The record is a 61-nucleotide RNA sequence from Taxus chinensis, which matches "Plastid-psbN 5UTR RNA" in Rfam. The organism belongs to Taxus, within Eukaryota. Rfam's curators write: Plastid psbN is a non-coding RNA (ncRNA) recognised in plastids. It was reported as a conserved 11 stem-loop in the prime untranslated region (5UTR) of psbN genes. It has been reported that the motif is retained in a subset of mature transcripts in barley, which can suggests a possible role in transcript alternative 5 prime processing.
RNA sequence: UAUAUGUCCCAUAAGAGGAGAAGCUCCCCAUCUGGGAGCUACUUUACCAUAUUCUUUAUUA
Numbered sequence: 001u002a003u004a005u006g007u008c009c010c011a012u013a014a015g016a017g018g019a020g021a022a023g024c025u026c027c028c029c030a031u032c033u034g035g036g037a038g039c040u041a042c043u044u045u046a047c048c049a050u051a052u053u054c055u056u057u058a059u060u061a
Stems, first nucleotide, its partner, number of pairs: 017045004022040006